Background:
Rfam assigns this 106-nucleotide RNA sequence from Anaerobacillus alkaliphilus to the family "SAM riboswitch aptamer (S box leader)". Pairs were carried over by alignment from the consensus structure, which is taken from published work. Lineage of the source: Bacteria > Bacillota > Bacilli > Bacillaceae > Anaerobacillus. It scores 85 bits against the family's covariance model. The SAM riboswitch is found upstream of a number of genes which code for proteins involved in methionine or cysteine biosynthesis in Gram-positive bacteria. The SAM riboswitch acts at the level of transcription termination control. The predicted structure consists of a complex stem-loop region followed by a single stem loop terminator region.
[Rfam]
RNA sequence: UUCUUAUCGAGAGAGAUGGAGGGAAGUGGCCCUGUGAAGUCUCAGCAACCAGCCGUUUGGUCAGGUGCUAAAUCCAUCAAGUGAUUUUUAGCUUGGAAGAUGAGAA
Numbered sequence: 001u002u003c004u005u006a007u008c009g010a011g012a013g014a015g016a017u018g019g020a021g022g023g024a025a026g027u028g029g030c031c032c033u034g035u036g037a038a039g040u041c042u043c044a045g046c047a048a049c050c051a052g053c054c055g056u057u058u059g060g061u062c063a064g065g066u067g068c069u070a071a072a073u074c075c076a077u078c079a080a081g082u083g084a085u086u087u088u089u090a091g092c093u094u095g096g097a098a099g100a101u102g103a104g105a106a
Stems, first nucleotide, its partner, number of pairs: 001106008013043005021032003026077004044069004049065002052061003073098001078095005